[Rfam]
RNA sequence: AAAAAGGGUGUUUGCUGCUUUGAUGGCACGUGCGCCAAUAUGGUGUGCGGGGUAUGGUUAUCAAGACAUACCCAACACGUAAUUUUUGUUUUCGUGGGGCAGUUGGGACCGAUAUGUACCGGCGCCUCC
Number, nucleotide and partner (000 for none) at each position: 001a000002a000003a000004a000005a000006g000007g000008g078009u077010g076011u075012u074013u028014g027015c026016u025017g024018c000019u000020u000021u000022g000023a000024u017025g016026g015027c014028a013029c049030g048031u047032g046033c045034g044035c043036c042037a000038a000039u000040a000041u000042g036043g035044u034045g033046u032047g031048c030049g029050g073051g072052g071053u070054a069055u068056g067057g000058u000059u000060a000061u000062c000063a000064a000065g000066a000067c056068a055069u054070a053071c052072c051073c050074a012075a011076c010077a009078c008079g000080u000081a000082a000083u000084u000085u000086u000087u000088g000089u000090u000091u000092u000093c000094g000095u000096g000097g127098g126099g125100c124101a000102g123103u122104u121105g120106g119107g000108a000109c000110c116111g115112a000113u000114a000115u111116g110117u000118a000119c106120c105121g104122g103123c102124g100125c099126c098127u097128c000129c000
A member of the RNA family "U11 spliceosomal RNA" from Danaus plexippus, 129 nucleotides long. Its Rfam clan is "U1 clan". The base pairs follow the family's consensus structure, which is taken from published work. The organism belongs to Danaus plexippus, within Eukaryota. Its family is annotated with pre-mRNA 5'-splice site binding, U11 snRNP and mRNA 5'-splice site recognition in the Gene Ontology. A search with the family's covariance model found it, with a score of 87 bits. Rfam classes the family as a spliceosomal small nuclear RNA.